[Rfam]
RNA sequence: AGAUGAGGUAGAGGUUGCGAUUUUUAAGAGUAUAAAGACGGAGAGUCAGAGAACUUGUAGAUGUCUUUAAAAAGGAAAAAUCGCCGAAGCACUAUUGUUCUCUGAUAAUAGUAGCUGGGUCUGUAGUCGAAUAGAUACAGAACUGUCAUAGAACUUCUAUGAUGAACUAUCGUUUUU
Numbered sequence: 001a002g003a004u005g006a007g008g009u010a011g012a013g014g015u016u017g018c019g020a021u022u023u024u025u026a027a028g029a030g031u032a033u034a035a036a037g038a039c040g041g042a043g044a045g046u047c048a049g050a051g052a053a054c055u056u057g058u059a060g061a062u063g064u065c066u067u068u069a070a071a072a073a074g075g076a077a078a079a080a081u082c083g084c085c086g087a088a089g090c091a092c093u094a095u096u097g098u099u100c101u102c103u104g105a106u107a108a109u110a111g112u113a114g115c116u117g118g119g120u121c122u123g124u125a126g127u128c129g130a131a132u133a134g135a136u137a138c139a140g141a142a143c144u145g146u147c148a149u150a151g152a153a154c155u156u157c158u159a160u161g162a163u164g165a166a167c168u169a170u171c172g173u174u175u176u177u
Base pairs, nucleotide, nucleotide: 007171008170009169010168011167017084018083019082020081021080022079023078024077025076033069034068035067036066037065038064039063040062088116089115090114091112092111093110094109095108096107097106098105117144118143120141121140122139123138124137125136127134146162147161148160149159150158151157152156
RNA: Lysine riboswitch aptamer